[Rfam]
RNA sequence: CCCAGCGGUUAGUCAGCUAUCCAGUGCCAAUCAGUGCCUGUGAUAGUGUUACAUUGCUGGGAGAUCAAGACAAUGCACCCAAUGCUUGUGUCCCACUGUUACUGUUCUGGUGACGGGUAGCACAUGCAACUAGGCAUUGUUGUACUUCCUCGAGAGUGCGCCGAACAUCUACCAUGUUUGUUUUGGAGCUAGUCUGGAAGCACACAGA
Numbered sequence: 001c002c003c004a005g006c007g008g009u010u011a012g013u014c015a016g017c018u019a020u021c022c023a024g025u026g027c028c029a030a031u032c033a034g035u036g037c038c039u040g041u042g043a044u045a046g047u048g049u050u051a052c053a054u055u056g057c058u059g060g061g062a063g064a065u066c067a068a069g070a071c072a073a074u075g076c077a078c079c080c081a082a083u084g085c086u087u088g089u090g091u092c093c094c095a096c097u098g099u100u101a102c103u104g105u106u107c108u109g110g111u112g113a114c115g116g117g118u119a120g121c122a123c124a125u126g127c128a129a130c131u132a133g134g135c136a137u138u139g140u141u142g143u144a145c146u147u148c149c150u151c152g153a154g155a156g157u158g159c160g161c162c163g164a165a166c167a168u169c170u171a172c173c174a175u176g177u178u179u180g181u182u183u184u185g186g187a188g189c190u191a192g193u194c195u196g197g198a199a200g201c202a203c204a205c206a207g208a
Stems, first nucleotide, its partner, number of pairs: 001061009012052002016047006022040003026037002070140007084130001086129004090123002093120001095118001096115001100112004142203002145200005158189002162185004166180002
A member of the RNA family "Small nucleolar RNA SNORA74" from Leptobrachium leishanense, 208 nucleotides long. It scores 102 bits against the family's covariance model. The source organism's lineage runs through Eukaryota, Eumetazoa, Batrachia, Megophryidae and Leptobrachium. Rfam 15.1 lists 1,348 matches to the family in 628 species. Clan: SNORA74 clan. Rfam's curators write: U19 belongs to the H/ACA class of snoRNAs. snoRNAs bind a number of proteins (including dyskerin, Gar1p and Nop10p in the case of the H/ACA class) to form snoRNP complexes.